[Rfam]
RNA sequence: ACCCUUUGAUGAAUUUUGUGUGUGCCAUGUCAGAAUCACCUAGCUGCUGUGAAGGAAAUAAGGUGGAUUUGAGGGU
Numbered sequence: 001a002c003c004c005u006u007u008g009a010u011g012a013a014u015u016u017u018g019u020g021u022g023u024g025c026c027a028u029g030u031c032a033g034a035a036u037c038a039c040c041u042a043g044c045u046g047c048u049g050u051g052a053a054g055g056a057a058a059u060a061a062g063g064u065g066g067a068u069u070u071g072a073g074g075g076u
Stems, first nucleotide, its partner, number of pairs: 001076004
The family of this 76-nucleotide RNA sequence from Kingdonia uniflora is "Small nucleolar RNA SNORD66". Rfam's curators write: snoRNA HBII-142 is part of the C/D family of snoRNAs. It is the human orthologue of the mouse MBII-142 snoRNA and is predicted to guide 2'O-ribose methylation of small 18S rRNA at residue C1272. The match comes from Rfam's covariance-model search (33 bits). Rfam links the family to the GO terms nucleolus and RNA processing.